[Rfam]
RNA: Burkholderia sRNA 39
RNA sequence: GUAUUGUGGGGACCGCCUCCAUCGAGAGGCGUUGGGCAGUAGCCAGCAACGACGGCUUGCACGCGAGAUCUAGACCCCUUCGUGCAGACAUCCUUCAAGCCAGCCGUCACAGCAAGCCAAGCCAUUUUUUUGU
Numbered sequence: 001g002u003a004u005u006g007u008g009g010g011g012a013c014c015g016c017c018u019c020c021a022u023c024g025a026g027a028g029g030c031g032u033u034g035g036g037c038a039g040u041a042g043c044c045a046g047c048a049a050c051g052a053c054g055g056c057u058u059g060c061a062c063g064c065g066a067g068a069u070c071u072a073g074a075c076c077c078c079u080u081c082g083u084g085c086a087g088a089c090a091u092c093c094u095u096c097a098a099g100c101c102a103g104c105c106g107u108c109a110c111a112g113c114a115a116g117c118c119a120a121g122c123c124a125u126u127u128u129u130u131u132g133u
Stems, first nucleotide, its partner, number of pairs: 006125004010118002014031006035044003046113002051108007058086004064082004